[Rfam]
RNA sequence: UCGGCUCCGGUUCACGCCUCCUCGCAGGGAGCGAGGCGACCCGGCGCA
Numbered sequence: 001u002c003g004g005c006u007c008c009g010g011u012u013c014a015c016g017c018c019u020c021c022u023c024g025c026a027g028g029g030a031g032c033g034a035g036g037c038g039a040c041c042c043g044g045c046g047c048a
Base pairs, nucleotide, nucleotide: 004047005046007044008043009042010041015038016037017036018035019034020033021031022030